[Rfam]
This 178-nucleotide RNA sequence from Plectonema radiosum belongs to the Rfam family "Antisense RNA which regulates isiA expression".
For this family Rfam cites "An internal antisense RNA regulates expression of the photosynthesis gene isiA" (Duhring et al., Proc Natl Acad Sci U S A, 2006).
The match comes from Rfam's covariance-model search (137 bits).
The source organism's lineage runs through Bacteria, Cyanophyceae, Oscillatoriales, Microcoleaceae and Plectonema radiosum.
The base pairs follow the family's consensus structure, which was predicted with PFOLD.
RNA sequence: AGUAACCAAAGAUAAUACUUGGGUCGAGAGUUGGGUUACUAAUUAAUCGGACUUCACCGAUAUUACUAUCAUAAAUUCCGCCAAAAAACAUCGCCUUUAAUACUAAAAGAAAUGCCCCGAAACCGAGAACAAUCAAAUGAUUGCCCAAAAUAAAACCUAACUGUCUUGGGUCAUUCCA
Numbered sequence: 001a002g003u004a005a006c007c008a009a010a011g012a013u014a015a016u017a018c019u020u021g022g023g024u025c026g027a028g029a030g031u032u033g034g035g036u037u038a039c040u041a042a043u044u045a046a047u048c049g050g051a052c053u054u055c056a057c058c059g060a061u062a063u064u065a066c067u068a069u070c071a072u073a074a075a076u077u078c079c080g081c082c083a084a085a086a087a088a089c090a091u092c093g094c095c096u097u098u099a100a101u102a103c104u105a106a107a108a109g110a111a112a113u114g115c116c117c118c119g120a121a122a123c124c125g126a127g128a129a130c131a132a133u134c135a136a137a138u139g140a141u142u143g144c145c146c147a148a149a150a151u152a153a154a155a156c157c158u159a160a161c162u163g164u165c166u167u168g169g170g171u172c173a174u175u176c177c178a
Stems, first nucleotide, its partner, number of pairs: 136175006144169002147166001